c-di-GMP-I riboswitch aptamer: an 89-nucleotide sequence from Anaerocolumna xylanovorans.
The match comes from Rfam's covariance-model search (81 bits).
Lineage of the source: Bacteria > Bacillati > Bacillota > Clostridia > Anaerocolumna xylanovorans.
Clan: c-di-GMP_I riboswitch clan.

RNA sequence: AUAAAUCAAGGGCAAACCCAUCGAAAGGUGGGGACGCAAAGCCGUAGGAUCUAAGACGUAUGAUACGUUAUGAUAGCCUGGUUGCCGAG
Numbered sequence: 001a002u003a004a005a006u007c008a009a010g011g012g013c014a015a016a017c018c019c020a021u022c023g024a025a026a027g028g029u030g031g032g033g034a035c036g037c038a039a040a041g042c043c044g045u046a047g048g049a050u051c052u053a054a055g056a057c058g059u060a061u062g063a064u065a066c067g068u069u070a071u072g073a074u075a076g077c078c079u080g081g082u083u084g085c086c087g088a089g
Base pairs, nucleotide, nucleotide: 012037013036017032018031019030020029021028022027040083041082042081043080046079047078048077049074050073051072056068057067058066059065